[Rfam]
RNA: Lysine riboswitch aptamer
RNA sequence: CAAAACAUUAGAGGAGCUUUUAGUAAUAGUAUCUAAGCUAGCAGGCAUGCGUAACUUAGUGAAAGGACAUAAAAGCCGAAACAACUGAAGUGGCAACUUCACUUGUUGGUAGAAAAGCAUAAAAGAUUUCUACUCUUUGGGAAACCAUUGGCGCUAAAUAUUUG
Numbered sequence: 001c002a003a004a005a006c007a008u009u010a011g012a013g014g015a016g017c018u019u020u021u022a023g024u025a026a027u028a029g030u031a032u033c034u035a036a037g038c039u040a041g042c043a044g045g046c047a048u049g050c051g052u053a054a055c056u057u058a059g060u061g062a063a064a065g066g067a068c069a070u071a072a073a074a075g076c077c078g079a080a081a082c083a084a085c086u087g088a089a090g091u092g093g094c095a096a097c098u099u100c101a102c103u104u105g106u107u108g109g110u111a112g113a114a115a116a117g118c119a120u121a122a123a124a125g126a127u128u129u130c131u132a133c134u135c136u137u138u139g140g141g142a143a144a145c146c147a148u149u150g151g152c153g154c155u156a157a158a159u160a161u162u163u164g
Base pairs, nucleotide, nucleotide: 008157009156010155011154016076017075018074019073020072021071023068024067033059034058035057036056037055039053080107081106082105083104084103086101087100088099089098090097091096108134109133110132111131112130113129114128116127118125